Makes More Granules Regulator RNA (mmgR): a 76-nucleotide RNA from Sphingomonas sp. SKA58. Rfam describes the family as follows. SuhB later renamed mmgR (makes more granules regulator) was a putative non-coding RNA found multiple times in the Agrobacterium tumefaciens genome and related alpha-proteobacteria. Other non-coding RNAs uncovered in the same analysis include: speF, ybhL, metA, and serC.Several studies inSinorhizobium meliloti showed that suhB element is indeed a non-coding RNA:firstly it was detected on Northern blot and called Sm8RNA, secondly in an RNAseq study referred to as SmelC689.The mutant phenotype's (strain lacking the small RNA) cytoplasm contains higher content of polyhydroxybutyrate (PBH)storage granules than wild type strain. The sRNA is required to limit the PBH intracellular accumulation when the nitrogen-fixing Sinorhizobium meliloti is under condition of surplus carbon in relation to nitrogen. Rfam classes the family as a small RNA.

Nucleotides: 076
Base pairs, nucleotide, nucleotide: 008018009017010016011015039061040060041059042058043057044056045055046054047053
Number, partner (000 for none) and nucleotide at each position: 001000a002000g003000a004000a005000u006000g007000a008018g009017c010016c011015u012000u013000u014000c015011a016010g017009g018008c019000a020000u021000c022000c023000u024000c025000u026000c027000c028000u029000a030000a031000a032000a033000c034000u035000u036000u037000a038000c039061g040060g041059g042058c043057u044056g045055g046054c047053u048000c049000a050000u051000u052000g053047a054046g055045c056044u057043g058042g059041c060040c061039c062000u063000u064000u065000u066000u067000u068000u069000g070000u071000u072000c073000u074000u075000u076000c

NCBI's taxonomy places the organism under Bacteria, Pseudomonadati, Alphaproteobacteria, Sphingomonadaceae, Sphingomonas.